[Rfam]
RNA sequence: GAAGACCCUGUUGAGUUUGACUCCAGUCUGGCUCUGUGCGGCGACAUCUGAGGUGUAGUAUAGGUGGAAGCGCAAGCAAAAAUGAAAUACCACCACUCGGAACGUUGCUUCACUUAUCGAAUGAAGAGACCAGCGGGCGGACUGUCUACAUGGCAGUUCACCAUCUAGGUUUGGGCGUAAACCGGUCCUCGCGACCUCCGUUACUUCGGUGCGGGUGCCCAACUGUGGCUAUUACUGAGCCAACGGCGUUGCUUCGGCAGCGUCGGAGUCUUGUUUCGAGACAUCUGCCAGAUGGGGAGUUUGGCUGGGGCGGCAUAUCUGUUACACGACAACGCAGGUGUCCUAAGGCGAGCUCAGUGGGAACAGAAAUCUCACGUGGAACACAAGCGUAAAAGCUUGCUUGAUUAACGAUUUCCAGUACGAAUCGAGACUGCGAAAGCAAGGCCAGCGAUCCUUUGCGAAAGAUAGGAAAUAUGAACAAAUCAUACCAGAGGUGUCAGAAUAAUUACCACAGGGAUAACUGGCUUGUGGCGGCCAAGCGUUCAUAGCGACGUCGCUUUUUGAUCCUUCGAUGU
Dot-bracket structure: ......((((.((((((..((((...((((((...(((.((((((.((((((..........(((((..((....))............))))).))))))..)))))).)))...(((((.....((((....(((((...)))))..............(..(................................................................................................)..)..))))...))))).......))))))....))))..((((.....))).)((((((...........))))))..((....((((((((.((((((.......))))))...))((......))....))))))....((..((((((.......)))))).)).(((....))).)).........(((((..............((((.......)))).)))))..........))))..))))))........(.(.(.((((((...((.......))...))))))...)).)..........

Eukaryotic large subunit ribosomal RNA: a 575-nucleotide part of an RNA from Angomonas deanei. The base pairs follow the family's consensus structure, which is taken from published work.